[Rfam]
RNA sequence: UGAAAUCUCAAAGGAGUGUCAUGAGAACACAGAUCCUCUGGUUUCUUUAAGAUGUUUUCAAUGAAACCAUGGAGUUUUGUGUUCUCAGGUCACCCCUUCGAGUGCCUC
Numbered sequence: 001u002g003a004a005a006u007c008u009c010a011a012a013g014g015a016g017u018g019u020c021a022u023g024a025g026a027a028c029a030c031a032g033a034u035c036c037u038c039u040g041g042u043u044u045c046u047u048u049a050a051g052a053u054g055u056u057u058u059c060a061a062u063g064a065a066a067c068c069a070u071g072g073a074g075u076u077u078u079g080u081g082u083u084c085u086c087a088g089g090u091c092a093c094c095c096c097u098u099c100g101a102g103u104g105c106c107u108c
Stems, first nucleotide, its partner, number of pairs: 007102002011098004016093003023086010
RNA: MIR398 microRNA precursor family
Organism: Brassica carinata